[Rfam]
RNA sequence: CUGCAUUUAUUUUACUUUCUUCAUUCUCAUCUUUCCCCAUGGGGGCCGAGUGUGCAGUGGCUGCAAACAACAGCCUCCUUGGUAGUGUAUGCAGCCUGUUGCCUGAAUGGGUUGUCCUAAGGGACCUUGGAGACAGCU
Numbered sequence: 001c002u003g004c005a006u007u008u009a010u011u012u013u014a015c016u017u018u019c020u021u022c023a024u025u026c027u028c029a030u031c032u033u034u035c036c037c038c039a040u041g042g043g044g045g046c047c048g049a050g051u052g053u054g055c056a057g058u059g060g061c062u063g064c065a066a067a068c069a070a071c072a073g074c075c076u077c078c079u080u081g082g083u084a085g086u087g088u089a090u091g092c093a094g095c096c097u098g099u100u101g102c103c104u105g106a107a108u109g110g111g112u113u114g115u116c117c118u119a120a121g122g123g124a125c126c127u128u129g130g131a132g133a134c135a136g137c138u
Stems, first nucleotide, its partner, number of pairs: 002056004020050003025045004081126003092114006
RNA: Small nucleolar RNA SNORA70
Organism: Physeter macrocephalus